[Rfam]
RNA sequence: GUGCUGUGAAGAAGAUCGAUUUUGUGUUCCAGAGAUUGGUCUCUUAUGAGGCCAUCUAUGUCGGCUGCACAUCCCUCUAAGAAGUUCUGUGCGC
Numbered sequence: 001g002u003g004c005u006g007u008g009a010a011g012a013a014g015a016u017c018g019a020u021u022u023u024g025u026g027u028u029c030c031a032g033a034g035a036u037u038g039g040u041c042u043c044u045u046a047u048g049a050g051g052c053c054a055u056c057u058a059u060g061u062c063g064g065c066u067g068c069a070c071a072u073c074c075c076u077c078u079a080a081g082a083a084g085u086u087c088u089g090u091g092c093g094c
Base pairs, nucleotide, nucleotide: 001094002093003092004091

Shown here is a 94-nucleotide sequence from Nyssa sinensis, a member of the family "Small nucleolar RNA U61". Its family is annotated with nucleolus and RNA processing in the Gene Ontology. It scores 60 bits against the family's covariance model. The family's RNA type in Rfam is C/D-box small nucleolar RNA.